ES003 sRNA: a 53-nucleotide RNA from Kluyvera genomosp. 3. Pairs were carried over by alignment from the consensus structure, which was predicted with RNAfold. From the family's description: Differentially expressed under several chemical stress and fermentation conditions. The source organism's lineage runs through Bacteria, Pseudomonadota, Enterobacterales, Enterobacteriaceae and Kluyvera. Gene Ontology term of the family: fermentation. It scores 59 bits against the family's covariance model.
[Rfam]
RNA sequence: GUUUGCCAGAAAUUCAUCGGUAAGCAGAUUUGCAUUGAUUUGUGCCGUUGUUA
Numbered sequence: 001g002u003u004u005g006c007c008a009g010a011a012a013u014u015c016a017u018c019g020g021u022a023a024g025c026a027g028a029u030u031u032g033c034a035u036u037g038a039u040u041u042g043u044g045c046c047g048u049u050g051u052u053a
Stems, first nucleotide, its partner, number of pairs: 001025007009018002034052001036050004